[Rfam]
RNA sequence: CACUUGGGCUUCUGUCGUGAGUGGCACACAGAGAGGGGCAGCUGUGGCUUUGUCUCUUUCUGUGCGGAAUCGCUACCAAGAGAUUUUGGAAGCAUAAUUUUUAUCCCUGCUUUUAGUGAGCCAGUCUGGCCUUGAGGUU
Numbered sequence: 001c002a003c004u005u006g007g008g009c010u011u012c013u014g015u016c017g018u019g020a021g022u023g024g025c026a027c028a029c030a031g032a033g034a035g036g037g038g039c040a041g042c043u044g045u046g047g048c049u050u051u052g053u054c055u056c057u058u059u060c061u062g063u064g065c066g067g068a069a070u071c072g073c074u075a076c077c078a079a080g081a082g083a084u085u086u087u088g089g090a091a092g093c094a095u096a097a098u099u100u101u102u103a104u105c106c107c108u109g110c111u112u113u114u115a116g117u118g119a120g121c122c123a124g125u126c127u128g129g130c131c132u133u134g135a136g137g138u139u
Stems, first nucleotide, its partner, number of pairs: 008093005013026005027064015065088007110137004116133001118131001120130004
RNA: U11 spliceosomal RNA
Organism: Salvator merianae